[Rfam]
RNA sequence: CCAACAAUGUGAUCUUGCUUGCGGAGGCAAAAUUUGCACAGUAUAAAAUCUGCAAGUAGUGCUAUUGUUGGAAUCACCGUACCUAUUUAGGUUUACGCUCCAAGAUCGGUGGAUAGCAGCCCUAUCAAUAUCUAGGAGAACUGUGCUAUGUUUAGAAGAUUAGGUAGUCUCUAAACAGAACAAUUUACCUGCUGAAC
Numbered sequence: 001c002c003a004a005c006a007a008u009g010u011g012a013u014c015u016u017g018c019u020u021g022c023g024g025a026g027g028c029a030a031a032a033u034u035u036g037c038a039c040a041g042u043a044u045a046a047a048a049u050c051u052g053c054a055a056g057u058a059g060u061g062c063u064a065u066u067g068u069u070g071g072a073a074u075c076a077c078c079g080u081a082c083c084u085a086u087u088u089a090g091g092u093u094u095a096c097g098c099u100c101c102a103a104g105a106u107c108g109g110u111g112g113a114u115a116g117c118a119g120c121c122c123u124a125u126c127a128a129u130a131u132c133u134a135g136g137a138g139a140a141c142u143g144u145g146c147u148a149u150g151u152u153u154a155g156a157a158g159a160u161u162a163g164g165u166a167g168u169c170u171c172u173a174a175a176c177a178g179a180a181c182a183a184u185u186u187a188c189c190u191g192c193u194g195a196a197c
Stems, first nucleotide, its partner, number of pairs: 001071009016058009036146006075111005081092004098138004103133004112126001114124003149177005155172001157170004161191006
Dot-bracket structure: (((((((((......(((((((((...........[[[[[[........)))))))))....)))))))))...[[[[[.((((....)))).....((((.((((]]]]](.(((.....))).)...)))).))))..]]]]]]..(((((.(.(((([[[[[[)))).))))))........]]]]]]......
This 197-nucleotide sequence from Triatovirus nigereginacellulae belongs to the Rfam family "Cripavirus internal ribosome entry site (IRES)". The family's consensus secondary structure is taken from published work. Rfam's curators put it in the seed alignment. This family represents a Cripavirus internal ribosome entry site (IRES) which is required for the production of capsid proteins through IRES-mediated translation. The organism belongs to Triatovirus nigereginacellulae, within Viruses.